Small nucleolar RNA SNORA27: a 124-nucleotide RNA sequence from Heterocephalus glaber. Taxonomically the source falls in Heterocephalus (Eukaryota, Deuterostomia, Gnathostomata, Amniota). Clan: SNORA27 clan. Rfam classes the family as an H/ACA-box small nucleolar RNA. A search with the family's covariance model found it, with a score of 100 bits. ACA27 is a member of the H/ACA class of snoRNA that guide the sites of modification of uridines to pseudouridines.
RNA sequence: CUAGCUCCUUUCACUUUGCCAAUUGGACGUAAAUUUUUAUUGGUCAUUCAAGUGACAAAGAAAAUAUCUUUUUAAAACUUGAGCAAACAAUGUUUUGUCUUGUAACCUGUCAGAGGAAGAAGAU
Numbered sequence: 001c002u003a004g005c006u007c008c009u010u011u012c013a014c015u016u017u018g019c020c021a022a023u024u025g026g027a028c029g030u031a032a033a034u035u036u037u038u039a040u041u042g043g044u045c046a047u048u049c050a051a052g053u054g055a056c057a058a059a060g061a062a063a064a065u066a067u068c069u070u071u072u073u074a075a076a077a078c079u080u081g082a083g084c085a086a087a088c089a090a091u092g093u094u095u096u097g098u099c100u101u102g103u104a105a106c107c108u109g110u111c112a113g114a115g116g117a118a119g120a121a122g123a124u
Stems, first nucleotide, its partner, number of pairs: 034057001036055001040051004067117006080102001081100001083098005